[Rfam]
RNA sequence: AUAUUGUCCUGUCACAGCAGUAAUGUCACGUAUCUGAAUCGUACUGCUGUCGCGGGACAUUUUCG
Numbered sequence: 001a002u003a004u005u006g007u008c009c010u011g012u013c014a015c016a017g018c019a020g021u022a023a024u025g026u027c028a029c030g031u032a033u034c035u036g037a038a039u040c041g042u043a044c045u046g047c048u049g050u051c052g053c054g055g056g057a058c059a060u061u062u063u064c065g
Stems, first nucleotide, its partner, number of pairs: 005059007015049008